RNA sequence: GUGUGUGUGUGGGGGGGGGGGAGCGUUCAGCACCAAGGACAGACAUGUUUACCUGUGUGUGGAUAGUGUUCAGCACCAGGGACAGGUAUAUUUACCU
Numbered sequence: 001g002u003g004u005g006u007g008u009g010u011g012g013g014g015g016g017g018g019g020g021g022a023g024c025g026u027u028c029a030g031c032a033c034c035a036a037g038g039a040c041a042g043a044c045a046u047g048u049u050u051a052c053c054u055g056u057g058u059g060u061g062g063a064u065a066g067u068g069u070u071c072a073g074c075a076c077c078a079g080g081g082a083c084a085g086g087u088a089u090a091u092u093u094a095c096c097u
Stems, first nucleotide, its partner, number of pairs: 004088003008084003023076001025074003029070005035064001037058001039056004045050001
Rfam assigns this 97-nucleotide RNA from Branchiostoma floridae to the family "mir-2060 microRNA precursor family". It scores 59 bits against the family's covariance model. The family's consensus secondary structure was predicted with RNAalifold. Its family is annotated with miRNA-mediated post-transcriptional gene silencing and RISC complex in the Gene Ontology. The source organism's lineage runs through Eukaryota, Eumetazoa, Deuterostomia, Chordata and Branchiostoma.